Shown here is an 83-nucleotide RNA sequence from Hibiscus syriacus, a member of the family "Small nucleolar RNA snoR14". Clan: SNORD110 clan. It scores 70 bits against the family's covariance model. On this family, see Brown et al., RNA 2001: "Multiple snoRNA gene clusters from Arabidopsis". Taxonomically the source falls in Hibiscus (Eukaryota, Streptophytina, Euphyllophyta, Magnoliopsida). By type it is a C/D-box small nucleolar RNA.
RNA sequence: GUGAUGUGAUGAUCGAAAUUCAAUGGUCUCUCAAUCCAUUGAUCUAAUUUGAUGUUACAUUGAACUUGACAGAUUUUGAUCGC
Numbered sequence: 001g002u003g004a005u006g007u008g009a010u011g012a013u014c015g016a017a018a019u020u021c022a023a024u025g026g027u028c029u030c031u032c033a034a035u036c037c038a039u040u041g042a043u044c045u046a047a048u049u050u051g052a053u054g055u056u057a058c059a060u061u062g063a064a065c066u067u068g069a070c071a072g073a074u075u076u077u078g079a080u081c082g083c
Stems, first nucleotide, its partner, number of pairs: 001083004